The family of this 126-nucleotide RNA from Monodelphis domestica is "Small Cajal body specific RNA 23". Its family is annotated with RNA processing, nucleolus and Cajal body in the Gene Ontology. A reference for the family is Darzacq et al. (2002), "Cajal body-specific small nuclear RNAs: a novel class of 2'-O-methylation and pseudouridylation guide RNAs", EMBO J. Rfam's curators put it in the seed alignment. The family has 18 seed sequences and 399 matches in Rfam 15.1. By type it is a small Cajal body RNA. The family's consensus secondary structure was predicted with RNAfold.

RNA sequence: GUGCUCACUAAAACUUUGUCCCUUCCAUGUGGUUGUGACAGUUAAUAAGUGAGCUAGAUUAAUUAGUAUUGAAUUGGGGGUGUCAUAUACCAGCUCAUAUGAUACACCACAGUUUUCAAUACAACA
Numbered sequence: 001g002u003g004c005u006c007a008c009u010a011a012a013a014c015u016u017u018g019u020c021c022c023u024u025c026c027a028u029g030u031g032g033u034u035g036u037g038a039c040a041g042u043u044a045a046u047a048a049g050u051g052a053g054c055u056a057g058a059u060u061a062a063u064u065a066g067u068a069u070u071g072a073a074u075u076g077g078g079g080g081u082g083u084c085a086u087a088u089a090c091c092a093g094c095u096c097a098u099a100u101g102a103u104a105c106a107c108c109a110c111a112g113u114u115u116u117c118a119a120u121a122c123a124a125c126a
Stems, first nucleotide, its partner, number of pairs: 003054006012043003017040004025032002066122001068120005074112003079108005086101001087098002